Background
mir-71 microRNA precursor family: a 67-nucleotide RNA sequence from Caenorhabditis bovis. Its family is annotated with miRNA-mediated post-transcriptional gene silencing and RISC complex in the Gene Ontology.

[Rfam]
RNA sequence: UGACGCUGAAAGACAUGGGUAGUGAGACGAGUCGUUACCGUAUCACUAUUCUGUUUUUCGCCGUUUG
Number, nucleotide and partner (000 for none) at each position: 001u000002g000003a000004c000005g000006c000007u000008g059009a058010a057011a056012g055013a054014c053015a052016u000017g051018g050019g049020u000021a047022g046023u045024g044025a043026g000027a041028c040029g039030a000031g000032u000033c000034g000035u000036u000037a000038c000039c029040g028041u027042a000043u025044c024045a023046c022047u021048a000049u019050u018051c017052u015053g014054u013055u012056u011057u010058u009059c008060g000061c000062c000063g000064u000065u000066u000067g000